Shown here is a 272-nucleotide part of an RNA from Thermodesulfatator indicus, a member of the family "Bacterial large subunit ribosomal RNA". It is one of the family's seed sequences.

RNA sequence: GGAGGCUUGAGAGGAGCUGCCCCUAGUACGAGAGGACCGGGGUGGACGCACCGCUGGUGGACCGGUUGUGGCUGGCCUGCCGCACAGCCGGGUAGCCAUGUGCGGAAGGGAUAACCGCUGAAAGCAUCUAAGCGGGAAGCCCUCCUCAAGAUGAGGCCUCCCGAGACAGGGGAGACCCUGUCCCCGAAGGGCCCAGGGAGACUACCUGGUAGAUAGGCCGGAGGUGGAAGCCCAGCAAUGGGUGGAGCUGACCGGUACUAAUCGCCCGAGCG
Numbered sequence: 001g002g003a004g005g006c007u008u009g010a011g012a013g014g015a016g017c018u019g020c021c022c023c024u025a026g027u028a029c030g031a032g033a034g035g036a037c038c039g040g041g042g043u044g045g046a047c048g049c050a051c052c053g054c055u056g057g058u059g060g061a062c063c064g065g066u067u068g069u070g071g072c073u074g075g076c077c078u079g080c081c082g083c084a085c086a087g088c089c090g091g092g093u094a095g096c097c098a099u100g101u102g103c104g105g106a107a108g109g110g111a112u113a114a115c116c117g118c119u120g121a122a123a124g125c126a127u128c129u130a131a132g133c134g135g136g137a138a139g140c141c142c143u144c145c146u147c148a149a150g151a152u153g154a155g156g157c158c159u160c161c162c163g164a165g166a167c168a169g170g171g172g173a174g175a176c177c178c179u180g181u182c183c184c185c186g187a188a189g190g191g192c193c194c195a196g197g198g199a200g201a202c203u204a205c206c207u208g209g210u211a212g213a214u215a216g217g218c219c220g221g222a223g224g225u226g227g228a229a230g231c232c233c234a235g236c237a238a239u240g241g242g243u244g245g246a247g248c249u250g251a252c253c254g255g256u257a258c259u260a261a262u263c264g265c266c267c268g269a270g271c272g
Stems, first nucleotide, its partner, number of pairs: 001161008011147004017045007047104005055098003062091005067084006108142003115135005165183001189267004193209005214260003217256005223249002230243005
Annotation
A reference for the family is Cannone et al. (2002), "The comparative RNA web (CRW) site: an online database of comparative sequence and structure information for ribosomal, intron, and other RNAs", BMC Bioinformatics. The organism belongs to Thermodesulfatator indicus, within Bacteria.